[Rfam]
RNA sequence: UUGUUUGCGUAUGUAGCAUAAUCAAGAUUCACAUGAAAAGUUGCAAAUUUGUUAUAUAAUUGAUGAAAUUAAUGGCUAGCUAUUUGAAAUUCAUGAGAAUCUUGAUGAUGCUGCAUCAGCAAUAAA
Numbered sequence: 001u002u003g004u005u006u007g008c009g010u011a012u013g014u015a016g017c018a019u020a021a022u023c024a025a026g027a028u029u030c031a032c033a034u035g036a037a038a039a040g041u042u043g044c045a046a047a048u049u050u051g052u053u054a055u056a057u058a059a060u061u062g063a064u065g066a067a068a069u070u071a072a073u074g075g076c077u078a079g080c081u082a083u084u085u086g087a088a089a090u091u092c093a094u095g096a097g098a099a100u101c102u103u104g105a106u107g108a109u110g111c112u113g114c115a116u117c118a119g120c121a122a123u124a125a126a
Stems, first nucleotide, its partner, number of pairs: 011116009021106010032095006
Background: mir-172 microRNA precursor family: a 126-nucleotide RNA from Solanum tuberosum. On this family, see Park et al., Curr Biol 2002: "CARPEL FACTORY, a Dicer homolog, and HEN1, a novel protein, act in microRNA metabolism in Arabidopsis thaliana". A search with the family's covariance model found it, with a score of 74 bits. From the family's description: mir-172 has been experimentally verified in Arabidopsis thaliana. This family is thought to target mRNAs coding for APETALA2-like transcription factors. The mature sequence is excised from the 3' arm of the hairpin. The family has 11 seed sequences and 2,076 matches in Rfam 15.1.